A member of the RNA family "Small nucleolar RNA ACA64" from Myotis lucifugus, 123 nucleotides long. Pairs were carried over by alignment from the consensus structure, which was predicted with WAR.
RNA sequence: GUUGGUUGAAAAUCACCCGCGGCCUUGGCCGUGACUGUGGGUGAGAUUCGGCGCCCAGAGCCACCUGGGGCCUCAGCUCACUGUCCACACGAUGUGGGGAGGUGAAACCCAGGCCCGACACGC
Numbered sequence: 001g002u003u004g005g006u007u008g009a010a011a012a013u014c015a016c017c018c019g020c021g022g023c024c025u026u027g028g029c030c031g032u033g034a035c036u037g038u039g040g041g042u043g044a045g046a047u048u049c050g051g052c053g054c055c056c057a058g059a060g061c062c063a064c065c066u067g068g069g070g071c072c073u074c075a076g077c078u079c080a081c082u083g084u085c086c087a088c089a090c091g092a093u094g095u096g097g098g099g100a101g102g103u104g105a106a107a108c109c110c111a112g113g114c115c116c117g118a119c120a121c122g123c
Stems, first nucleotide, its partner, number of pairs: 005052006013044004021036002024033001069115005078105005086096003
The literature on the family includes a 2006 paper in RNA by Schattner et al., "A computational screen for mammalian pseudouridylation guide H/ACA RNAs". NCBI's taxonomy places the organism under Eukaryota, Dipnotetrapodomorpha, Amniota, Boreoeutheria, Myotis. By type it is an H/ACA-box small nucleolar RNA.